[Rfam]
RNA sequence: CCGGCCGGCCGGGCCCCUCUGGCGGAUGUGGCGGCACAUCCGUGAUGUCGGCGACCGAA
Numbered sequence: 001c002c003g004g005c006c007g008g009c010c011g012g013g014c015c016c017c018u019c020u021g022g023c024g025g026a027u028g029u030g031g032c033g034g035c036a037c038a039u040c041c042g043u044g045a046u047g048u049c050g051g052c053g054a055c056c057g058a059a
Base pairs, nucleotide, nucleotide: 006053007052009051010050011049012048022043023042024041025040026039027038028037029036
RNA: terC RNA